Rfam assigns this 144-nucleotide sequence from Gossypium harknessii to the family "MIR7502 microRNA precursor family". The organism belongs to Gossypium, within Eukaryota.
RNA sequence: UAUUAAAAUUUCAUCUAUUCUUAUUGUUAAAAACUGACGUGAUUAACAAAAUAGCCAUACAGUUACAUGUGGCGUGUCAUGUGUACCUCAUUUUGACAUACAAUGACCAAUUUUUAACUGUAAAAAUGAAUAGAAAUUUUAACA
Numbered sequence: 001u002a003u004u005a006a007a008a009u010u011u012c013a014u015c016u017a018u019u020c021u022u023a024u025u026g027u028u029a030a031a032a033a034c035u036g037a038c039g040u041g042a043u044u045a046a047c048a049a050a051a052u053a054g055c056c057a058u059a060c061a062g063u064u065a066c067a068u069g070u071g072g073c074g075u076g077u078c079a080u081g082u083g084u085a086c087c088u089c090a091u092u093u094u095g096a097c098a099u100a101c102a103a104u105g106a107c108c109a110a111u112u113u114u115u116a117a118c119u120g121u122a123a124a125a126a127u128g129a130a131u132a133g134a135a136a137u138u139u140u141a142a143c144a
Stems, first nucleotide, its partner, number of pairs: 003142010013131002017127003021123004027117006